Shown here is a 73-nucleotide RNA from Cytophaga hutchinsonii, a member of the family "tRNA".

[Rfam]
RNA sequence: GCCGAUGUAGCUCAGCUGGUAGAGUACUUCCAUGGUAAGGAAGGGGUCACGGGUUCGAGUCCCGUCAUUGGCU
Numbered sequence: 001g002c003c004g005a006u007g008u009a010g011c012u013c014a015g016c017u018g019g020u021a022g023a024g025u026a027c028u029u030c031c032a033u034g035g036u037a038a039g040g041a042a043g044g045g046g047u048c049a050c051g052g053g054u055u056c057g058a059g060u061c062c063c064g065u066c067a068u069u070g071g072c073u
Stems, first nucleotide, its partner, number of pairs: 001072007010025004027043005049065005

The match comes from Rfam's covariance-model search (65 bits). The source organism's lineage runs through Bacteria, Cytophagia, Cytophagales, Cytophagaceae and Cytophaga hutchinsonii.